This 109-nucleotide RNA sequence from Evansella cellulosilytica belongs to the Rfam family "SAM riboswitch aptamer (S box leader)". From the family's description: The SAM riboswitch is found upstream of a number of genes which code for proteins involved in methionine or cysteine biosynthesis in Gram-positive bacteria. Its family is annotated with regulation of gene expression in the Gene Ontology. Taxonomically the source falls in Evansella cellulosilytica (Bacteria, Bacillati, Bacilli, Caryophanales).
[Rfam]
RNA sequence: UUCUUAUCCAGAGAGGCGGAGGGACUGGCCCGAUGAAGCCCGGCAACCACCAAGGUGACUUGGAAAAGGUGCCAAUUCCUGCAAAGUGUGAUGCUUUGAUAGAUGAGGG
Numbered sequence: 001u002u003c004u005u006a007u008c009c010a011g012a013g014a015g016g017c018g019g020a021g022g023g024a025c026u027g028g029c030c031c032g033a034u035g036a037a038g039c040c041c042g043g044c045a046a047c048c049a050c051c052a053a054g055g056u057g058a059c060u061u062g063g064a065a066a067a068g069g070u071g072c073c074a075a076u077u078c079c080u081g082c083a084a085a086g087u088g089u090g091a092u093g094c095u096u097u098g099a100u101a102g103a104u105g106a107g108g109g
Stems, first nucleotide, its partner, number of pairs: 001109008013041001015040003021031003025081001027079002042073004047069002050063003077101001082098006
Pairs were carried over by alignment from the consensus structure, which is taken from published work.